[Rfam]
RNA sequence: UUGCGGAUGUGAUGAGAACCGUCGCUUUCUACCCAGGGCUGUGCGCAAGCACGCCGCUGCGGAUUCGACAAAUUUGCACGUCAGUCUGAUCCGCAA
Numbered sequence: 001u002u003g004c005g006g007a008u009g010u011g012a013u014g015a016g017a018a019c020c021g022u023c024g025c026u027u028u029c030u031a032c033c034c035a036g037g038g039c040u041g042u043g044c045g046c047a048a049g050c051a052c053g054c055c056g057c058u059g060c061g062g063a064u065u066c067g068a069c070a071a072a073u074u075u076g077c078a079c080g081u082c083a084g085u086c087u088g089a090u091c092c093g094c095a096a
Stems, first nucleotide, its partner, number of pairs: 001096007
Description
The family of this 96-nucleotide sequence from Klebsormidium nitens is "Small nucleolar RNA Z122". By type it is a C/D-box small nucleolar RNA. Taxonomically the source falls in Klebsormidium (Eukaryota, Viridiplantae, Streptophyta, Klebsormidiales). Its family is annotated with RNA processing and nucleolus in the Gene Ontology. For this family Rfam cites "The high diversity of snoRNAs in plants: identification and comparative study of 120 snoRNA genes from Oryza sativa" (Chen et al., Nucleic Acids Res, 2003).